[Rfam]
RNA: nadA riboswitch
RNA sequence: GGCUUCAACAACCCCGUGGGCUGGGCCGCCGGGAAGGCGGCCAGCGAGCCCACUGGAGCC
Numbered sequence: 001g002g003c004u005u006c007a008a009c010a011a012c013c014c015c016g017u018g019g020g021c022u023g024g025g026c027c028g029c030c031g032g033g034a035a036g037g038c039g040g041c042c043a044g045c046g047a048g049c050c051c052a053c054u055g056g057a058g059c060c
Stems, first nucleotide, its partner, number of pairs: 001060007013046001014044001016053007024042007